A member of the RNA family "Group II catalytic intron D1-D4-1" from Massilia psychrophila, 82 nucleotides long. A search with the family's covariance model found it, with a score of 36 bits. Rfam 15.1 lists 2,508 matches to the family in 1,144 species. Rfam links the family to the GO term Group II intron splicing.
RNA sequence: GCCUCAUGUCUGAAAGGAUGACGGCGCAAGCCGGAGCGAGAAGUCAGCAGAGGUCGUACUAGCCGCAGUCCGGGUGAAGGGC
Number, nucleotide and partner (000 for none) at each position: 001g027002c026003c000004u023005c000006a000007u020008g019009u018010c017011u016012g000013a000014a000015a000016g011017g010018a009019u008020g007021a000022c000023g004024g000025c000026g002027c001028a000029a000030g000031c000032c000033g000034g000035a000036g000037c000038g000039a000040g000041a000042a000043g000044u051045c050046a000047g000048c000049a000050g045051a044052g000053g082054u081055c080056g000057u000058a000059c000060u000061a000062g075063c074064c073065g000066c000067a000068g000069u000070c000071c000072g000073g064074g063075u062076g000077a000078a000079g000080g055081g054082c053